A member of the RNA family "Baculoviridae Nucleocapsid Assembly essential Element" from Alphabaculovirus lonobliquae, 200 nucleotides long. From the family's description: Internal cis-element within the ac83 gene. The family's RNA type in Rfam is cis-regulatory element. The base pairs follow the family's consensus structure, which was predicted with RNAfold. Lineage of the source: Viruses > Naldaviricetes > Baculoviridae > Alphabaculovirus > Lonomia obliqua nucleopolyhedrovirus. A reference for the family is Huang et al. (2017), "The Autographa californica Multiple Nucleopolyhedrovirus ac83 Gene Contains a cis-Acting Element That Is Essential for Nucleocapsid Assembly", J Virol. The match comes from Rfam's covariance-model search (170 bits). Its family is annotated with viral capsid assembly in the Gene Ontology.
RNA sequence: CAUUUUGUGCGGCGUAUAUUGACCAAUAUACUACACUCGGACGUUUGUACAGAUCUAUAUACUACGAUUUACCGAAAAUAUACUACACUUGCACCAAAAUAUACUACGAUGGACACCAAAUAUAAUUACACUUUCGUAAAACGGCCUAAAAAUAUUGAACAAUAUGGAUCAAAUAUAAGAUCCAAAAACGCUACGAUUUC
Numbered sequence: 001c002a003u004u005u006u007g008u009g010c011g012g013c014g015u016a017u018a019u020u021g022a023c024c025a026a027u028a029u030a031c032u033a034c035a036c037u038c039g040g041a042c043g044u045u046u047g048u049a050c051a052g053a054u055c056u057a058u059a060u061a062c063u064a065c066g067a068u069u070u071a072c073c074g075a076a077a078a079u080a081u082a083c084u085a086c087a088c089u090u091g092c093a094c095c096a097a098a099a100u101a102u103a104c105u106a107c108g109a110u111g112g113a114c115a116c117c118a119a120a121u122a123u124a125a126u127u128a129c130a131c132u133u134u135c136g137u138a139a140a141a142c143g144g145c146c147u148a149a150a151a152a153u154a155u156u157g158a159a160c161a162a163u164a165u166g167g168a169u170c171a172a173a174u175a176u177a178a179g180a181u182c183c184a185a186a187a188a189c190g191c192u193a194c195g196a197u198u199u200c
Stems, first nucleotide, its partner, number of pairs: 009191003014031007037053002040050001041048002135179001137177001144170001147167001152163002